[Rfam]
A member of the RNA family "c-di-AMP riboswitch aptamer (ydaO/yuaA leader)" from Streptosporangium saharense, 137 nucleotides long.

RNA sequence: UGGACACGGCCGCCGAAUCCGCAAGUUUCGCGGAACCGGGGACCCAAGUUUUUGGGGUGAAUCAGCGCAUAGGCGCUGUAGGACACUUUCCAGUCCGAACCCGUCAGCUAACCCGGUAGGCGGCAUGGAAGCGACGC
Numbered sequence: 001u002g003g004a005c006a007c008g009g010c011c012g013c014c015g016a017a018u019c020c021g022c023a024a025g026u027u028u029c030g031c032g033g034a035a036c037c038g039g040g041g042a043c044c045c046a047a048g049u050u051u052u053u054g055g056g057g058u059g060a061a062u063c064a065g066c067g068c069a070u071a072g073g074c075g076c077u078g079u080a081g082g083a084c085a086c087u088u089u090c091c092a093g094u095c096c097g098a099a100c101c102c103g104u105c106a107g108c109u110a111a112c113c114c115g116g117u118a119g120g121c122g123g124c125a126u127g128g129a130a131g132c133g134a135c136g137c
Base pairs, nucleotide, nucleotide: 011122012121013120014119018034019033020032021031022030035117036116037115038114039113040112045054046053055102056101057100063078064077065076066075081096082095083094084093